[Rfam]
RNA sequence: GUGCCUUAAACUAAUGAGUAAGGAAAAUACAGAGCCCUGGUGACGCUUGGCUCCGCUAAUACAAAUUAGUUUUUCCAAUUUUUGAAGGGGUUCAGGUCGUCCUCUGGAGUCUCGCCUACUUUCGCGGGACAUCGGAGUGUAGCGAUCUACCCU
Dot-bracket structure: ...(((((..........)))))........(((((..(......)..))))).((((........))))................(((((..(((((((.((.(((.(.(((((........))))).).))).))....))))))))))))
The family of this 153-nucleotide RNA sequence from Thrips palmi is "U12 minor spliceosomal RNA". Rfam classes the family as a spliceosomal small nuclear RNA. The pairing is the family consensus, mapped onto this sequence. The organism belongs to Thrips, within Eukaryota. Its family is annotated with U12 snRNP, mRNA branch site recognition and pre-mRNA branch point binding in the Gene Ontology.